This 68-nucleotide RNA sequence from Epulopiscium sp. Nele67-Bin004 belongs to the Rfam family "RAGATH-18 RNA".
Actinobacteria, Firmicutes, Fusobacteria, Thermotogae (1 example).
It scores 64 bits against the family's covariance model.
Lineage of the source: Bacteria > Bacillati > Lachnospirales > Lachnospiraceae > Candidatus Epulonipiscium.
By type it is a small RNA.
RNA sequence: CCUUUGGAGUGUUAUAUCAAAUGAUGGUAGCAAGCAACAUCGCAAAGUCAGACACGAUGAAUAAGGAA
Dot-bracket structure: ((((....(((((........(((.....((..........))....)))))))).......))))..